[Rfam]
RNA sequence: AAAGGAGCAAUACCACCCCCUUGUUCUAUCAAGGGGGUGGUAUUGCUCCUUUCAUUAU
Numbered sequence: 001a002a003a004g005g006a007g008c009a010a011u012a013c014c015a016c017c018c019c020c021u022u023g024u025u026c027u028a029u030c031a032a033g034g035g036g037g038u039g040g041u042a043u044u045g046c047u048c049c050u051u052u053c054a055u056u057a058u
Stems, first nucleotide, its partner, number of pairs: 001052014018035006